[Rfam]
RNA sequence: UCCUUCUCUCCAAAGCACCCUACUAAAACUGCAGGAGCCAAACCUCAGGUUUAGCUCUUUGUGGACGUGUGAGCAUGGGUACACCAGGGAAGGAGAUUAAUGGCACAGCAUCGGAAAUGAGGCUGGGAGGGACCUCUUUCUUAAUGUCCAGUGUCCUUUGUCUCAAGAUUCUGUGUUACACUG
Numbered sequence: 001u002c003c004u005u006c007u008c009u010c011c012a013a014a015g016c017a018c019c020c021u022a023c024u025a026a027a028a029c030u031g032c033a034g035g036a037g038c039c040a041a042a043c044c045u046c047a048g049g050u051u052u053a054g055c056u057c058u059u060u061g062u063g064g065a066c067g068u069g070u071g072a073g074c075a076u077g078g079g080u081a082c083a084c085c086a087g088g089g090a091a092g093g094a095g096a097u098u099a100a101u102g103g104c105a106c107a108g109c110a111u112c113g114g115a116a117a118u119g120a121g122g123c124u125g126g127g128a129g130g131g132a133c134c135u136c137u138u139u140c141u142u143a144a145u146g147u148c149c150a151g152u153g154u155c156c157u158u159u160g161u162c163u164c165a166a167g168a169u170u171c172u173g174u175g176u177u178a179c180a181c182u183g
Base pairs, nucleotide, nucleotide: 018079019078021075023073024072028068029067034058035057037055038054040052041051042050043049044048102177103176104175105174106173107172108171110169125154127152130149131148132147
Rfam assigns this 183-nucleotide RNA sequence from Myripristis murdjan to the family "Small nucleolar RNA SNORA81". Its family is annotated with RNA processing and nucleolus in the Gene Ontology. The match comes from Rfam's covariance-model search (100 bits). By type it is an H/ACA-box small nucleolar RNA.